This 271-nucleotide sequence from Pseudomonas indica belongs to the Rfam family "rne-II RNA".
RNA sequence: AUACGUGUAGGGUGGAGAUGCACGACCAUCGGACUGUGUAGCAGCACGCUUUAUUCAAGACGCUUCAUCUCGUCCGCUGCCGAUGGUUGAUUCCUCCCCUGAGAAAGUGCUUUCUGUCACAACAGCAAGCAGGAGACGUAGUCGCGACCCCGGCCUUUCGGCCGAACGUUGCUAGACACUGGAACGGCCGACAACCAUUCCUGACGCGCCCUGACACCGACCGCGAGAGUCGUGUGUGCCGAACGCCGUUUCCGGCAGCACCGGAAACCGA
Numbered sequence: 001a002u003a004c005g006u007g008u009a010g011g012g013u014g015g016a017g018a019u020g021c022a023c024g025a026c027c028a029u030c031g032g033a034c035u036g037u038g039u040a041g042c043a044g045c046a047c048g049c050u051u052u053a054u055u056c057a058a059g060a061c062g063c064u065u066c067a068u069c070u071c072g073u074c075c076g077c078u079g080c081c082g083a084u085g086g087u088u089g090a091u092u093c094c095u096c097c098c099c100u101g102a103g104a105a106a107g108u109g110c111u112u113u114c115u116g117u118c119a120c121a122a123c124a125g126c127a128a129g130c131a132g133g134a135g136a137c138g139u140a141g142u143c144g145c146g147a148c149c150c151c152g153g154c155c156u157u158u159c160g161g162c163c164g165a166a167c168g169u170u171g172c173u174a175g176a177c178a179c180u181g182g183a184a185c186g187g188c189c190g191a192c193a194a195c196c197a198u199u200c201c202u203g204a205c206g207c208g209c210c211c212u213g214a215c216a217c218c219g220a221c222c223g224c225g226a227g228a229g230u231c232g233u234g235u236g237u238g239c240c241g242a243a244c245g246c247c248g249u250u251u252c253c254g255g256c257a258g259c260a261c262c263g264g265a266a267a268c269c270g271a
Base pairs, nucleotide, nucleotide: 014097015096016095017094023089024088025087026086027085028084029083030082031081032080036077037076038075040050041049042048059074060073061072062071098133099132100131101130137206138205139204141177142176143175144172145171146170147169151164152163153162154161155160181201182200183199184198186196187195214237215236216235217234218232219231220230221229248268249267250266251265252264253263254262
Pairs were carried over by alignment from the consensus structure, which is taken from published work. Rfam classes the family as a cis-regulatory element.